[Rfam]
RNA: Pistol ribozyme
Organism: Paenibacillus sp. Root444D2
Nucleotides: 072
Base pairs, nucleotide, nucleotide: 001016002015003014004013006037007036008035009034010033011032024071025070026069031039041066042065043064044063045062046061047060048059049058050057051056
Number, partner (000 for none) and nucleotide at each position: 001016a002015g003014u004013c005000g006037u007036u008035c009034a010033g011032g012000c013004g014003a015002c016001u017000u018000u019000a020000a021000a022000c023000c024071g025070c026069c027000u028000u029000a030000a031039g032011u033010c034009u035008g036007a037006a038000g039031c040000g041066u042065u043064c044063a045062u046061u047060c048059c049058c050057c051056a052000g053000a054000a055000u056051u057050g058049g059048g060047g061046a062045g063044u064043g065042a066041g067000g068000u069026g070025g071024u072000a